This 66-nucleotide RNA from Leishmania braziliensis belongs to the Rfam family "Trypanosomatid snoRNA TB9Cs1H1". For this family Rfam cites "A genome-wide analysis of C/D and H/ACA-like small nucleolar RNAs in Trypanosoma brucei reveals a trypanosome-specific pattern of rRNA modification" (Liang et al., RNA, 2005). It is annotated as an H/ACA-box small nucleolar RNA. The family has 4 seed sequences and 68 matches in Rfam 15.1. Rfam links the family to the GO terms RNA processing and nucleolus. The organism belongs to Leishmania braziliensis, within Eukaryota.
[Rfam]
RNA sequence: CGCGCAGUCUAGGAAACCAGUGCAUGCGUGAGACUUGUGCUGCGCUGGUGCCGAAGCUGCGCAAGA
Numbered sequence: 001c002g003c004g005c006a007g008u009c010u011a012g013g014a015a016a017c018c019a020g021u022g023c024a025u026g027c028g029u030g031a032g033a034c035u036u037g038u039g040c041u042g043c044g045c046u047g048g049u050g051c052c053g054a055a056g057c058u059g060c061g062c063a064a065g066a
Stems, first nucleotide, its partner, number of pairs: 002062006016049005